[Rfam]
RNA sequence: CGCCAUGCAGGGCAACCUGUGUGAUGAGCAGGCAGGAGUCAGCAGAGGCCAUAUUAGCCUAAGGCCUGGGGUAAUGCCCAGGACAUGGUGAAGGGC
Numbered sequence: 001c002g003c004c005a006u007g008c009a010g011g012g013c014a015a016c017c018u019g020u021g022u023g024a025u026g027a028g029c030a031g032g033c034a035g036g037a038g039u040c041a042g043c044a045g046a047g048g049c050c051a052u053a054u055u056a057g058c059c060u061a062a063g064g065c066c067u068g069g070g071g072u073a074a075u076g077c078c079c080a081g082g083a084c085a086u087g088g089u090g091a092a093g094g095g096c
Stems, first nucleotide, its partner, number of pairs: 001026002004023008039046002048096003057089003066081003

Annotation
Group II catalytic intron D1-D4-1: a 96-nucleotide sequence from a Deltaproteobacteria bacterium. NCBI's taxonomy places the organism under Bacteria, Pseudomonadati, Myxococcota, Myxococcia.